Record summary:
The record is an 81-nucleotide RNA sequence, which matches "Burkholderia RNA 7 (anti-hemB)" in Rfam. The base pairs follow the family's consensus structure, which is taken from published work. A reference for the family is Weinberg et al. (2007), "Identification of 22 candidate structured RNAs in bacteria using the CMfinder comparative genomics pipeline", Nucleic Acids Res. Rfam links the family to the GO terms bacterial biofilm matrix and protein binding. From the family's description: This RNA motif was identified by computational search in b-proteobacteria Burkholderia.

RNA sequence: UCCCCGCUUCUCCUCCCUGAGCGGGAGCCUGCUGCUUAAUUCACAGGCUUUUUCCCGCCGCUUUGACGGCGGCUUUUUUUU
Numbered sequence: 001u002c003c004c005c006g007c008u009u010c011u012c013c014u015c016c017c018u019g020a021g022c023g024g025g026a027g028c029c030u031g032c033u034g035c036u037u038a039a040u041u042c043a044c045a046g047g048c049u050u051u052u053u054c055c056c057g058c059c060g061c062u063u064u065g066a067c068g069g070c071g072g073c074u075u076u077u078u079u080u081u
Base pairs, nucleotide, nucleotide: 003025004024005023006022007021008020027048028047029046030045031044033043034042055072056071057070058069059068060067